[Rfam]
RNA: Mu-gpT-DE RNA
RNA sequence: CCCUGACAGUUGCAUUGGGCGACUGACUUAACCCUGACAGGAGAUUCUCAUG
Numbered sequence: 001c002c003c004u005g006a007c008a009g010u011u012g013c014a015u016u017g018g019g020c021g022a023c024u025g026a027c028u029u030a031a032c033c034c035u036g037a038c039a040g041g042a043g044a045u046u047c048u049c050a051u052g
Stems, first nucleotide, its partner, number of pairs: 002041004007025005